The family of this 87-nucleotide RNA sequence from Triticum aestivum is "MIR1120/MIR1122 microRNA precursor family". Pairs were carried over by alignment from the consensus structure, which was predicted with RNAalifold. The family has 6 seed sequences and 44,765 matches in Rfam 15.1. A search with the family's covariance model found it, with a score of 90 bits. A reference for the family is Yao et al. (2007), "Cloning and characterization of microRNAs from wheat (Triticum aestivum L.)", Genome Biol.

RNA sequence: CUACUCCCUCCGUCCCAAUAUAUAAGAGUGUUUUUUACACUAGUGUAGUGUCAAAAACACUCUUAUAUUACGGGACAGAGGGAGUAG
Numbered sequence: 001c002u003a004c005u006c007c008c009u010c011c012g013u014c015c016c017a018a019u020a021u022a023u024a025a026g027a028g029u030g031u032u033u034u035u036u037a038c039a040c041u042a043g044u045g046u047a048g049u050g051u052c053a054a055a056a057a058c059a060c061u062c063u064u065a066u067a068u069u070a071c072g073g074g075a076c077a078g079a080g081g082g083a084g085u086a087g
Stems, first nucleotide, its partner, number of pairs: 003085003007081004013075004020068016037051005